[Rfam]
This 170-nucleotide RNA sequence from Marinobacterium iners belongs to the Rfam family "Group II catalytic intron D1-D4-3". The base pairs follow the family's consensus structure. It scores 58 bits against the family's covariance model. Gene Ontology term of the family: Group II intron splicing.
RNA sequence: UUGCUGGCCAACGGCAGGGUCUGAAGGAAGCCAUAGGAGGUUAACGGUACACAACGCAAGUGAACCUACUUCGGCAGUGCAGGUGGGUAAGCGUGCAAAAUAGCGCGAAGCCCGAUACUCGGUCAGACCUGUGCUGUGCUUGAGGGUGGAAUCGUUGACAGGGAGCCGGU
Numbered sequence: 001u002u003g004c005u006g007g008c009c010a011a012c013g014g015c016a017g018g019g020u021c022u023g024a025a026g027g028a029a030g031c032c033a034u035a036g037g038a039g040g041u042u043a044a045c046g047g048u049a050c051a052c053a054a055c056g057c058a059a060g061u062g063a064a065c066c067u068a069c070u071u072c073g074g075c076a077g078u079g080c081a082g083g084u085g086g087g088u089a090a091g092c093g094u095g096c097a098a099a100a101u102a103g104c105g106c107g108a109a110g111c112c113c114g115a116u117a118c119u120c121g122g123u124c125a126g127a128c129c130u131g132u133g134c135u136g137u138g139c140u141u142g143a144g145g146g147u148g149g150a151a152u153c154g155u156u157g158a159c160a161g162g163g164a165g166c167c168g169g170u
Base pairs, nucleotide, nucleotide: 001017002016003015004014005013006012030170031169032168042157043156044155045154046153047152048150050148051147052146065145066144067143074137075136076135078133079132080131081130082129083128084127085113086112087111088110091106092105093104094103